RNA sequence: CCAGAAGGUCGGGCGGCCGCCGGUAUGUUUUUGACAUACGGGAGGAAAGUCCGGGCUCCAAGGAGUAACGGUGCCGGAUAACAUCCGGCGAGGGUGACCUCAGGGAAAGUGCCACAGAAAACAAACCGCUUUUUACUUCGGUAAUAAAGUAAGGAUGAAAAGGUGCGGUAAGAGCGCACCGCAUUUCCGGUAACGGCAAUGGCAAGGUAAACCCCACCGGGAGCAAAACCGAAUAGGGAUGGCAUAUGGGCUGGCUCCGCCCCGUCAUCCGGGUUGGUUGCUGAAGACCGGAAGCAAUUCCGGUUUUAGAUGAAUGGUCGCCUAUCCAGCUUUGCUGGUGGACAGAACCCGGCUUAUAGACCUUCUGGCGUA
Numbered sequence: 001c002c003a004g005a006a007g008g009u010c011g012g013g014c015g016g017c018c019g020c021c022g023g024u025a026u027g028u029u030u031u032u033g034a035c036a037u038a039c040g041g042g043a044g045g046a047a048a049g050u051c052c053g054g055g056c057u058c059c060a061a062g063g064a065g066u067a068a069c070g071g072u073g074c075c076g077g078a079u080a081a082c083a084u085c086c087g088g089c090g091a092g093g094g095u096g097a098c099c100u101c102a103g104g105g106a107a108a109g110u111g112c113c114a115c116a117g118a119a120a121a122c123a124a125a126c127c128g129c130u131u132u133u134u135a136c137u138u139c140g141g142u143a144a145u146a147a148a149g150u151a152a153g154g155a156u157g158a159a160a161a162g163g164u165g166c167g168g169u170a171a172g173a174g175c176g177c178a179c180c181g182c183a184u185u186u187c188c189g190g191u192a193a194c195g196g197c198a199a200u201g202g203c204a205a206g207g208u209a210a211a212c213c214c215c216a217c218c219g220g221g222a223g224c225a226a227a228a229c230c231g232a233a234u235a236g237g238g239a240u241g242g243c244a245u246a247u248g249g250g251c252u253g254g255c256u257c258c259g260c261c262c263c264g265u266c267a268u269c270c271g272g273g274u275u276g277g278u279u280g281c282u283g284a285a286g287a288c289c290g291g292a293a294g295c296a297a298u299u300c301c302g303g304u305u306u307u308a309g310a311u312g313a314a315u316g317g318u319c320g321c322c323u324a325u326c327c328a329g330c331u332u333u334g335c336u337g338g339u340g341g342a343c344a345g346a347a348c349c350c351g352g353c354u355u356a357u358a359g360a361c362c363u364u365c366u367g368g369c370g371u372a
Stems, first nucleotide, its partner, number of pairs: 001368010011357001012322007020042002023039006047355003051352005056223004065256001069219005074088005089103001090101004104214002109212002111208003126154002128150005133144004162180006181203001182201004187196003227279004237270006248262004286305008